[Rfam]
RNA sequence: UUCUUAUUAAGAGAGGUGGAGGGACUGGCCCUUGGAAGCCUCGGCAGCGGAUUGAACUUCAAUACCGUGCUAAAUCCUGCUGGCUGCUCAGUGCAGACCGGAAAAUAAGAA
Dot-bracket structure: ((((((((....(((((...(((.[.[[)))......)))))((((.((.((((.....))))..))))))...(]].](.(.((((.....)))).).)..)))))))))
RNA: SAM riboswitch aptamer (S box leader)